This 133-nucleotide sequence from Actinomadura spongiicola belongs to the Rfam family "c-di-AMP riboswitch aptamer (ydaO/yuaA leader)".
RNA sequence: CACGGUCCAUCUGAGACCGGAACGGAGCCGGGGACCCAGGUUCCAGGGGUGAAUCGGCGCGAGAGUUCGCGCCGUAGGGCUGCUUCCAUGCCCGAAUCCGUCAGCUAACCCGGUAGGCGUCAUGGGAGACAAG
Numbered sequence: 001c002a003c004g005g006u007c008c009a010u011c012u013g014a015g016a017c018c019g020g021a022a023c024g025g026a027g028c029c030g031g032g033g034a035c036c037c038a039g040g041u042u043c044c045a046g047g048g049g050u051g052a053a054u055c056g057g058c059g060c061g062a063g064a065g066u067u068c069g070c071g072c073c074g075u076a077g078g079g080c081u082g083c084u085u086c087c088a089u090g091c092c093c094g095a096a097u098c099c100g101u102c103a104g105c106u107a108a109c110c111c112g113g114u115a116g117g118c119g120u121c122a123u124g125g126g127a128g129a130c131a132a133g
Stems, first nucleotide, its partner, number of pairs: 001116001006026003027114006037046001047099003055074008077093004